The record is a 138-nucleotide RNA from Poecilia reticulata, which matches "Small nucleolar RNA SNORA8" in Rfam. It scores 71 bits against the family's covariance model. The family has 5 seed sequences and 1,490 matches in Rfam 15.1. Pairs were carried over by alignment from the consensus structure, which was predicted with RNAfold.

RNA sequence: AGCACUGCGUGGUAUCUGCAGCCAGCUGCUGUGUCAGCUGGUUAGUUCAAAGGUCAGUGCUAAAGAAACUCAGCUUCUGGCAUCGUUGGUCUUCAUGCUGGCUGUGUGUGGAGUCCUGGUAUUUCAGCUGAAACAAGC
Numbered sequence: 001a002g003c004a005c006u007g008c009g010u011g012g013u014a015u016c017u018g019c020a021g022c023c024a025g026c027u028g029c030u031g032u033g034u035c036a037g038c039u040g041g042u043u044a045g046u047u048c049a050a051a052g053g054u055c056a057g058u059g060c061u062a063a064a065g066a067a068a069c070u071c072a073g074c075u076u077c078u079g080g081c082a083u084c085g086u087u088g089g090u091c092u093u094c095a096u097g098c099u100g101g102c103u104g105u106g107u108g109u110g111g112a113g114u115c116c117u118g119g120u121a122u123u124u125c126a127g128c129u130g131a132a133a134c135a136a137g138c
Stems, first nucleotide, its partner, number of pairs: 002060006014054004018046002020043009065125004070119004081106003
Notes:
Rfam classes the family as an H/ACA-box small nucleolar RNA. Its family is annotated with nucleolus and RNA processing in the Gene Ontology.